[Rfam]
RNA sequence: UGUAUCAGUGAUGAUAACUUGGCUCCCUCUACUGAACUUUGUGAGGAGAUUGCCUCUGUUACCCAAAUUCUGUCUGAGGUACA
Numbered sequence: 001u002g003u004a005u006c007a008g009u010g011a012u013g014a015u016a017a018c019u020u021g022g023c024u025c026c027c028u029c030u031a032c033u034g035a036a037c038u039u040u041g042u043g044a045g046g047a048g049a050u051u052g053c054c055u056c057u058g059u060u061a062c063c064c065a066a067a068u069u070c071u072g073u074c075u076g077a078g079g080u081a082c083a
Stems, first nucleotide, its partner, number of pairs: 001083006

About this RNA:
Shown here is an 83-nucleotide sequence from Gambusia affinis, a member of the family "Small nucleolar RNA SNORD100". Taxonomically the source falls in Gambusia (Eukaryota, Bilateria, Craniata, Atherinomorphae). It scores 78 bits against the family's covariance model. The family's consensus secondary structure was predicted with RNAalifold.